A. fumigatus sRNA Afu_254: a 151-nucleotide RNA from Aspergillus versicolor.
The family's RNA type in Rfam is small RNA.
A search with the family's covariance model found it, with a score of 94 bits.
The source organism's lineage runs through Eukaryota, Ascomycota, Eurotiomycetes, Aspergillaceae and Aspergillus versicolor.

RNA sequence: CAAGCAUCCUACACAUUAUACAGCCACUUUCAAGGUUCUAAACCAAACACUACCAACCAACCUUCAACAUGUCUCCCUGCUCCUGCAACUGCUGCUCCGGCAACUGCAACUCCUGCUCUUGCAGCUCCUGCACCGUGAGUGUUUCUGAGUC
Numbered sequence: 001c002a003a004g005c006a007u008c009c010u011a012c013a014c015a016u017u018a019u020a021c022a023g024c025c026a027c028u029u030u031c032a033a034g035g036u037u038c039u040a041a042a043c044c045a046a047a048c049a050c051u052a053c054c055a056a057c058c059a060a061c062c063u064u065c066a067a068c069a070u071g072u073c074u075c076c077c078u079g080c081u082c083c084u085g086c087a088a089c090u091g092c093u094g095c096u097c098c099g100g101c102a103a104c105u106g107c108a109a110c111u112c113c114u115g116c117u118c119u120u121g122c123a124g125c126u127c128c129u130g131c132a133c134c135g136u137g138a139g140u141g142u143u144u145c146u147g148a149g150u151c
Base pairs, nucleotide, nucleotide: 078102079101080100081099085095086094087093106131107130108129115122116121